The record is a 303-nucleotide RNA sequence from Salix dunnii, which matches "Plant signal recognition particle RNA" in Rfam.
It is annotated as a non-coding RNA gene.
RNA sequence: GCUGAGCCUGGCAACGUGGGCUUGUAACCCGAGUGGGAGCUGUGAGGUGUUGGAACGUUGACUGAGCCCAGAGAGUUGGGUUUGGAUUUGCUUGAUUCUGGCCUGCCCGUUUCAAGCCGGGAGUUGAGUCAUGGUGUCCUAGUGAAGAUGUGGGUGUCAUGGCUACUAGACUGGAGGGUACAGCGUGAGGCUGGCUUCACAGAGCAGCGACUACUUCCCUCUCUUGGCAGUGAAAGGAUAACGGGCUGGUGCAGUCUGAAUCCAUGUGGCUUAAUGGGCCGGUCUAGCUGGACCAACACCUUU
Number, nucleotide and partner (000 for none) at each position: 001g040002c039003u038004g023005a022006g021007c020008c019009u018010g017011g000012c000013a000014a000015c000016g000017u010018g009019g008020g007021c006022u005023u004024g000025u000026a000027a000028c037029c036030c035031g000032a000033g000034u000035g030036g029037g028038a003039g002040c001041u000042g000043u000044g302045a301046g300047g299048u298049g297050u296051u295052g294053g293054a000055a000056c290057g289058u287059u286060g285061a283062c282063u281064g280065a000066g000067c000068c277069c276070a275071g000072a000073g272074a271075g270076u269077u268078g263079g262080g261081u260082u259083u258084g257085g256086a255087u000088u254089u253090g252091c000092u251093u000094g000095a000096u000097u000098c249099u248100g247101g246102c245103c244104u243105g242106c000107c237108c236109g000110u235111u234112u233113c232114a231115a000116g228117c227118c226119g225120g224121g223122a222123g221124u000125u000126g000127a164128g163129u162130c161131a160132u159133g158134g157135u156136g155137u154138c153139c152140u000141a000142g149143u148144g000145a000146a000147g000148a143149u142150g000151u000152g139153g138154g137155u136156g135157u134158c133159a132160u131161g130162g129163c128164u127165a000166c000167u000168a000169g000170a000171c000172u000173g218174g217175a216176g215177g214178g000179u000180a000181c000182a000183g000184c209185g208186u207187g000188a000189g000190g000191c202192u201193g200194g000195c000196u000197u000198c000199a000200c193201a192202g191203a000204g000205c000206a000207g186208c185209g184210a000211c000212u000213a000214c177215u176216u175217c174218c173219c000220u000221c123222u122223c121224u120225u119226g118227g117228c116229a000230g000231u114232g113233a112234a111235a110236g108237g107238a000239u000240a000241a000242c105243g104244g103245g102246c101247u100248g099249g098250u000251g092252c090253a089254g088255u086256c085257u084258g083259a082260a081261u080262c079263c078264a000265u000266g000267u000268g077269g076270c075271u074272u073273a000274a000275u070276g069277g068278g000279c000280c064281g063282g062283u061284c000285u060286a059287g058288c000289u057290g056291g000292a000293c053294c052295a051296a050297c049298a048299c047300c046301u045302u044303u000